[Rfam]
RNA: azaaromatic riboswitch aptamer (yjdF RNA)
Organism: Gottschalkia purinilytica
RNA sequence: UUAGAUAGAGAUAAAAACACAGUUUCGGUUGGUAGUCCGAACCUAUCUAUAAUAAAAGAUAGCAGUAACCUGCCCUCCUGGGUUGUCCAUUCUCAGUUAAGAAGUU
Numbered sequence: 001u002u003a004g005a006u007a008g009a010g011a012u013a014a015a016a017a018c019a020c021a022g023u024u025u026c027g028g029u030u031g032g033u034a035g036u037c038c039g040a041a042c043c044u045a046u047c048u049a050u051a052a053u054a055a056a057a058g059a060u061a062g063c064a065g066u067a068a069c070c071u072g073c074c075c076u077c078c079u080g081g082g083u084u085g086u087c088c089a090u091u092c093u094c095a096g097u098u099a100a101g102a103a104g105u106u
Base pairs, nucleotide, nucleotide: 004098005097006096008094009093010092011091022042023041025040026039027038028037043062044061045060046059047058048057072083073082074081075080